[Rfam]
RNA sequence: CCCUGUUGGGGGCACCGUCCGUCCGCGAGUUUCGCGCACGGGCGCAUUUUUG
Numbered sequence: 001c002c003c004u005g006u007u008g009g010g011g012g013c014a015c016c017g018u019c020c021g022u023c024c025g026c027g028a029g030u031u032u033c034g035c036g037c038a039c040g041g042g043c044g045c046a047u048u049u050u051u052g
Stems, first nucleotide, its partner, number of pairs: 016044007025035004
Rfam assigns this 52-nucleotide RNA sequence from Oceanibaculum pacificum to the family "ffh sRNA". NCBI's taxonomy places the organism under Bacteria, Pseudomonadota, Alphaproteobacteria, Rhodospirillales, Oceanibaculum. The base pairs follow the family's consensus structure, which is taken from published work. It is annotated as a small RNA. The literature on the family includes a 2009 paper in BMC Genomics by Meyer et al., "Identification of candidate structured RNAs in the marine organism 'Candidatus Pelagibacter ubique'".